[Rfam]
RNA sequence: CAAGACGAUCCAGUAGCGUAUUUUUUACUCACAAUGCAGGUCAUUAACCUUGAAAAUUUGAGGGAUGACCUCAUUUAAUCUCCAGUAGCAUUUUGACCUGUAUUGGAGGAAUCAUGCGUCUGGAUCGUCUUAC
Numbered sequence: 001c002a003a004g005a006c007g008a009u010c011c012a013g014u015a016g017c018g019u020a021u022u023u024u025u026u027a028c029u030c031a032c033a034a035u036g037c038a039g040g041u042c043a044u045u046a047a048c049c050u051u052g053a054a055a056a057u058u059u060g061a062g063g064g065a066u067g068a069c070c071u072c073a074u075u076u077a078a079u080c081u082c083c084a085g086u087a088g089c090a091u092u093u094u095g096a097c098c099u100g101u102a103u104u105g106g107a108g109g110a111a112u113c114a115u116g117c118g119u120c121u122g123g124a125u126c127g128u129c130u131u132a133c
Stems, first nucleotide, its partner, number of pairs: 002131011016119005024111001025039002029036001048063006064075004079109009
Rfam assigns this 133-nucleotide sequence from Pantoea vagans to the family "Yersinia sRNA 155(RyfD)". Rfam describes the family as follows. The sRNA was identified by and is confirmed to have a stable secondary structure by using genome-wide structure probing at different temperatures. Pairs were carried over by alignment from the consensus structure. Rfam classes the family as a small RNA. A reference for the family is Righetti et al. (2016), "Temperature-responsive in vitro RNA structurome of Yersinia pseudotuberculosis", Proc Natl Acad Sci U S A. The source organism's lineage runs through Bacteria, Pseudomonadati, Pseudomonadota, Enterobacterales and Pantoea.